RNA sequence: AUUAAAUAAAAGUUCAUUCCAUGUAUAUGCUUGAGAAUAUGGCUCAAGUGUCUCUACCAGGUAACCGUAAAAUACCGGACUACAUCGAAUAACAUUUGAAAA
Numbered sequence: 001a002u003u004a005a006a007u008a009a010a011a012g013u014u015c016a017u018u019c020c021a022u023g024u025a026u027a028u029g030c031u032u033g034a035g036a037a038u039a040u041g042g043c044u045c046a047a048g049u050g051u052c053u054c055u056a057c058c059a060g061g062u063a064a065c066c067g068u069a070a071a072a073u074a075c076c077g078g079a080c081u082a083c084a085u086c087g088a089a090u091a092a093c094a095u096u097u098g099a100a101a102a
Stems, first nucleotide, its partner, number of pairs: 018088002021085005029049007058078001060076004

Notes:
A member of the RNA family "Purine riboswitch aptamer" from Bacillus sp. FJAT-49711, 102 nucleotides long. The family's consensus secondary structure is taken from published work. Rfam describes the family as follows. Riboswitches are metabolite binding domains within certain messenger RNAs that serve as precision sensors for their corresponding targets. It scores 84 bits against the family's covariance model.